[Rfam]
RNA sequence: UUGUUUUUUUCGGUUUAGAUUUUUGUGAGUUUUAAGCAAGAAAAUCUAAACCUAAAGAAAAUA
Numbered sequence: 001u002u003g004u005u006u007u008u009u010u011c012g013g014u015u016u017a018g019a020u021u022u023u024u025g026u027g028a029g030u031u032u033u034a035a036g037c038a039a040g041a042a043a044a045u046c047u048a049a050a051c052c053u054a055a056a057g058a059a060a061a062u063a
Base pairs, nucleotide, nucleotide: 004060005059006058007057008056009055010054012052013051014050015049016048017047018046019045020044021043022042023041024040
RNA: mir-737 microRNA precursor family